RNA sequence: GAUGGCAGUGACGAUUUGCAAAUAUUCAAGCUCAACAGACCAAAUCACAGGUCUUCUCUCAGGAGUUGAUUUGUAUGCCGAUUAUCCCGCUGAACUGAGCCAUC
Numbered sequence: 001g002a003u004g005g006c007a008g009u010g011a012c013g014a015u016u017u018g019c020a021a022a023u024a025u026u027c028a029a030g031c032u033c034a035a036c037a038g039a040c041c042a043a044a045u046c047a048c049a050g051g052u053c054u055u056c057u058c059u060c061a062g063g064a065g066u067u068g069a070u071u072u073g074u075a076u077g078c079c080g081a082u083u084a085u086c087c088c089g090c091u092g093a094a095c096u097g098a099g100c101c102a103u104c
Stems, first nucleotide, its partner, number of pairs: 001104006
Background: Rfam assigns this 104-nucleotide RNA sequence from Triticum turgidum to the family "Small nucleolar RNA Z107/R87". A search with the family's covariance model found it, with a score of 111 bits.